[Rfam]
RNA: M-box riboswitch aptamer (ykoK leader)
Organism: Clostridium acetireducens
RNA sequence: UAAUAUUAGUGUUAGGUGAGGCUCCUAUAUGGAUACACGCUACUACCCGGAAACAUCGAGAGAUGCCAAUGGGUUAACAAAUAUUAUCGAACUAAGGUUUUAUUUAAUGUAGCUGGAUUUAUUCCAAAGCUGUAUAGUGCUAAAACUCUACGAAUAAUAACUAUA
Numbered sequence: 001u002a003a004u005a006u007u008a009g010u011g012u013u014a015g016g017u018g019a020g021g022c023u024c025c026u027a028u029a030u031g032g033a034u035a036c037a038c039g040c041u042a043c044u045a046c047c048c049g050g051a052a053a054c055a056u057c058g059a060g061a062g063a064u065g066c067c068a069a070u071g072g073g074u075u076a077a078c079a080a081a082u083a084u085u086a087u088c089g090a091a092c093u094a095a096g097g098u099u100u101u102a103u104u105u106a107a108u109g110u111a112g113c114u115g116g117a118u119u120u121a122u123u124c125c126a127a128a129g130c131u132g133u134a135u136a137g138u139g140c141u142a143a144a145a146c147u148c149u150a151c152g153a154a155u156a157a158u159a160a161c162u163a164u165a
Stems, first nucleotide, its partner, number of pairs: 006160003010156001011151002013095001015147003020141003025137008039113005045074005054065004080104004086098003115125003